[Rfam]
RNA sequence: GGAACCCGAGCGGGAGAGUCCCCGGCACGUCCGGGGCGCCGAAGGAGCAAGUACCCCGCACACUCUCAGGCAACGAGAACCGCUCGGGCGAG
Numbered sequence: 001g002g003a004a005c006c007c008g009a010g011c012g013g014g015a016g017a018g019u020c021c022c023c024g025g026c027a028c029g030u031c032c033g034g035g036g037c038g039c040c041g042a043a044g045g046a047g048c049a050a051g052u053a054c055c056c057c058g059c060a061c062a063c064u065c066u067c068a069g070g071c072a073a074c075g076a077g078a079a080c081c082g083c084u085c086g087g088g089c090g091a092g
Stems, first nucleotide, its partner, number of pairs: 006087008020036004038071003041067002045065003051059002
RNA: Glycine riboswitch aptamer
Organism: Saccharothrix variisporea